A member of the RNA family "pan motif" from Paenibacillus swuensis, 120 nucleotides long. The match comes from Rfam's covariance-model search (37 bits).
RNA sequence: GAGGCGGUAUCUUGACUUUGUCAGAGCUGCACUUUCCAAAGGAUGGAUUGAAAACAAUCUCAUACUAACGUAAGUAGUAUGUUGGAUUCUGCUCUGAGCCGAAGGGACCGAGACAGAAGG
Numbered sequence: 001g002a003g004g005c006g007g008u009a010u011c012u013u014g015a016c017u018u019u020g021u022c023a024g025a026g027c028u029g030c031a032c033u034u035u036c037c038a039a040a041g042g043a044u045g046g047a048u049u050g051a052a053a054a055c056a057a058u059c060u061c062a063u064a065c066u067a068a069c070g071u072a073a074g075u076a077g078u079a080u081g082u083u084g085g086a087u088u089c090u091g092c093u094c095u096g097a098g099c100c101g102a103a104g105g106g107a108c109c110g111a112g113a114c115a116g117a118a119g120g
Stems, first nucleotide, its partner, number of pairs: 001034003004030005010025002089116003092112003096108001099106002